[Rfam]
RNA: c-di-GMP-I riboswitch aptamer
RNA sequence: ACGUCGAAAAAGCAAAGCUAGCGAAAACUAGUGACGCAAAACUAAAGGGACUAAAGCUCGUCUCAUGCUAGCUAAGUCAGCCAGUUACCAAA
Numbered sequence: 001a002c003g004u005c006g007a008a009a010a011a012g013c014a015a016a017g018c019u020a021g022c023g024a025a026a027a028c029u030a031g032u033g034a035c036g037c038a039a040a041a042c043u044a045a046a047g048g049g050a051c052u053a054a055a056g057c058u059c060g061u062c063u064c065a066u067g068c069u070a071g072c073u074a075a076g077u078c079a080g081c082c083a084g085u086u087a088c089c090a091a092a
Stems, first nucleotide, its partner, number of pairs: 012037002017032005040086004047082002049078003056072003